[Rfam]
RNA sequence: GACUUUGAGUCUUGGCACUGGGAGAAUUCACAGUUGACUUUAUUAUUCUGUGGUUCUGCGGGUGCCAAAAUUUAAUCAA
Numbered sequence: 001g002a003c004u005u006u007g008a009g010u011c012u013u014g015g016c017a018c019u020g021g022g023a024g025a026a027u028u029c030a031c032a033g034u035u036g037a038c039u040u041u042a043u044u045a046u047u048c049u050g051u052g053g054u055u056c057u058g059c060g061g062g063u064g065c066c067a068a069a070a071u072u073u074a075a076u077c078a079a
Stems, first nucleotide, its partner, number of pairs: 005075006012068006019061001021059001022057001024056003028053006
The record is a 79-nucleotide RNA from Drosophila yakuba, which matches "mir-263 microRNA precursor family" in Rfam.
The family is grouped with related families in Rfam's "mir-182 clan".
The sequence is in the family's curated seed alignment.
Taxonomically the source falls in Sophophora (Eukaryota, Muscomorpha, Ephydroidea, Drosophila).
The family has 52 seed sequences and 368 matches in Rfam 15.1.
For this family Rfam cites "Direct sequencing and expression analysis of a large number of miRNAs in Aedes aegypti and a multi-species survey of novel mosquito miRNAs" (Li et al., BMC Genomics, 2009).